RNA sequence: CCUUAACGAGAAUCUGCUACGGUUCCAGUCAGACUGGAGUGGGAAGGCGCUAAUACAGGUUCACGACC
Numbered sequence: 001c002c003u004u005a006a007c008g009a010g011a012a013u014c015u016g017c018u019a020c021g022g023u024u025c026c027a028g029u030c031a032g033a034c035u036g037g038a039g040u041g042g043g044a045a046g047g048c049g050c051u052a053a054u055a056c057a058g059g060u061u062c063a064c065g066a067c068c
Base pairs, nucleotide, nucleotide: 010062011061012060013059014058015057016056018053020049021048023044024043025042026041029038030037
mir-9437 microRNA precursor family: a 68-nucleotide RNA from Nematostella vectensis.
The source organism's lineage runs through Eukaryota, Opisthokonta, Cnidaria, Edwardsiidae and Nematostella.
A search with the family's covariance model found it, with a score of 88 bits.